Shown here is an 82-nucleotide RNA from Prunus yedoensis, a member of the family "MIR397 microRNA precursor family". Lineage of the source: Eukaryota > Streptophyta > Mesangiospermae > eudicotyledons > Prunus yedoensis. On this family, see Mica et al., BMC Genomics 2009: "High throughput approaches reveal splicing of primary microRNA transcripts and tissue specific expression of mature microRNAs in Vitis vinifera". A search with the family's covariance model found it, with a score of 62 bits.
[Rfam]
RNA sequence: GAUAGAAACAUAAUUGGGUGCAGCGCUGUUGAAAUUUUGAAACAAGUUCAAUUCAUCAACGCUGCACUCAAUGAUGUUUCUU
Dot-bracket structure: .....((((((.(((((((((((((.((.(((....................))).)).))))))))))))).))))))...